[Rfam]
RNA sequence: UGGACCAGUGAUGUGAAUGGAAUGCAUCUGAAUACAAAUUAUGAUCAAUCAUUGAAACACUGAGGUCCAU
Number, nucleotide and partner (000 for none) at each position: 001u000002g068003g067004a066005c065006c064007a000008g000009u000010g000011a000012u000013g000014u000015g000016a000017a000018u000019g000020g000021a000022a000023u000024g000025c000026a000027u000028c000029u000030g000031a000032a000033u000034a000035c000036a000037a000038a000039u000040u000041a000042u000043g000044a000045u000046c000047a000048a000049u000050c000051a000052u000053u000054g000055a000056a000057a000058c000059a000060c000061u000062g000063a000064g006065g005066u004067c003068c002069a000070u000

The family of this 70-nucleotide RNA from Otolemur garnettii is "Small nucleolar RNA SNORD113/SNORD114 family". For this family Rfam cites "Identification of tandemly-repeated C/D snoRNA genes at the imprinted human 14q32 domain reminiscent of those at the Prader-Willi/Angelman syndrome region" (Cavaille et al., Hum Mol Genet, 2002). Lineage of the source: Eukaryota > Bilateria > Chordata > Sarcopterygii > Otolemur. From the family's description: The imprinted human domain at 14q32 contains two clusters of tandemly repeated small nucleolar RNAs named 14q(I) and 14q(II) snoRNAs. These two clusters are named SNORD113 and SNORD114 respectively in the HGNC approved gene symbol nomenclature. The snoRNAs found in both clusters are clearly related and are represented here by a single family. These snoRNAs are intron encoded and are processed from the tissue-specific non-coding human MEG8 RNA, which lies downstream of the imprinted genes DLK1 and GTL2. snoRNAs 14q(I) and 14q(II) differ from previously identified C/D box snoRNAs in their expression profiles and lack of complementarity to rRNA and snRNA. Homologues of these snoRNAs are found in the imprinted non-coding mouse transcript Rian, and in the rat non-coding Bsr (brain-specific repetitive) RNA. The family's consensus secondary structure is taken from published work. Gene Ontology terms of the family: nucleolus and RNA processing. Its Rfam clan is "SNORD74 clan".